[Rfam]
RNA sequence: GAGGAGGCCCGUAGCCACGGCAUGCCUUUUUGGUGGUGCGUUGUGGGUGGUGGCUUUCCAAGA
Numbered sequence: 001g002a003g004g005a006g007g008c009c010c011g012u013a014g015c016c017a018c019g020g021c022a023u024g025c026c027u028u029u030u031u032g033g034u035g036g037u038g039c040g041u042u043g044u045g046g047g048u049g050g051u052g053g054c055u056u057u058c059c060a061a062g063a
Stems, first nucleotide, its partner, number of pairs: 003059003006055004015046007023038004
RNA: Trypanosomatid snoRNA TB10Cs4H4
Organism: Trypanosoma brucei